[Rfam]
RNA sequence: CAUAUUAAUAGAUAUUCCAUUUGUAUAUUGUCAUAUUAUGGCUGACAGUUUCUACCCAAGACCGUUAUUCUUGGACUACGAAUGCGUUGAUAAAAGUU
Numbered sequence: 001c002a003u004a005u006u007a008a009u010a011g012a013u014a015u016u017c018c019a020u021u022u023g024u025a026u027a028u029u030g031u032c033a034u035a036u037u038a039u040g041g042c043u044g045a046c047a048g049u050u051u052c053u054a055c056c057c058a059a060g061a062c063c064g065u066u067a068u069u070c071u072u073g074g075a076c077u078a079c080g081a082a083u084g085c086g087u088u089g090a091u092a093a094a095a096g097u098u
Stems, first nucleotide, its partner, number of pairs: 018084008029047005056074006
Dot-bracket structure: .................((((((((...(((((.........)))))........((((((.......))))))..))))))))..............
The family of this 98-nucleotide RNA sequence from Limosilactobacillus equigenerosi is "Purine riboswitch aptamer". For this family Rfam cites "Three-state mechanism couples ligand and temperature sensing in riboswitches" (Reining et al., Nature, 2013). NCBI's taxonomy places the organism under Bacteria, Bacillati, Lactobacillaceae, Limosilactobacillus, Limosilactobacillus equigenerosi. Pairs were carried over by alignment from the consensus structure, which is taken from published work. It scores 61 bits against the family's covariance model.